[Rfam]
RNA: Small nucleolar RNA snoR8a
RNA sequence: ACCGUGCUAUGAUUAUAAAAAAUUCCUCGUACUGACUUGCUAUCAUGUAGCAUGACAGACUCCUUUACACCCAUAGAAUAUGAGCACG
Numbered sequence: 001a002c003c004g005u006g007c008u009a010u011g012a013u014u015a016u017a018a019a020a021a022a023u024u025c026c027u028c029g030u031a032c033u034g035a036c037u038u039g040c041u042a043u044c045a046u047g048u049a050g051c052a053u054g055a056c057a058g059a060c061u062c063c064u065u066u067a068c069a070c071c072c073a074u075a076g077a078a079u080a081u082g083a084g085c086a087c088g
Base pairs, nucleotide, nucleotide: 003088004087005086006085